[Rfam]
RNA sequence: AAUAUAUUUUGUUAGGUGAGGCUCCUAUAUGGAUAUAUGCUACUGCCCAAAAAUGUCGAGAGACGCCAAUGGGUGAACAGGAUAAGCCGAAAUAAGGCAAUCUUAAUGUAGCUAAAUUUAUAUUUUAACGACAUAUAGUGCUAAAACUCGACGAAUGACGGAUAAA
Numbered sequence: 001a002a003u004a005u006a007u008u009u010u011g012u013u014a015g016g017u018g019a020g021g022c023u024c025c026u027a028u029a030u031g032g033a034u035a036u037a038u039g040c041u042a043c044u045g046c047c048c049a050a051a052a053a054u055g056u057c058g059a060g061a062g063a064c065g066c067c068a069a070u071g072g073g074u075g076a077a078c079a080g081g082a083u084a085a086g087c088c089g090a091a092a093u094a095a096g097g098c099a100a101u102c103u104u105a106a107u108g109u110a111g112c113u114a115a116a117u118u119u120a121u122a123u124u125u126u127a128a129c130g131a132c133a134u135a136u137a138g139u140g141c142u143a144a145a146a147c148u149c150g151a152c153g154a155a156u157g158a159c160g161g162a163u164a165a166a
Stems, first nucleotide, its partner, number of pairs: 005162001007160001009158002011152002013095001015148003020142003025138007039112005045074005054065004080103004086098003114126003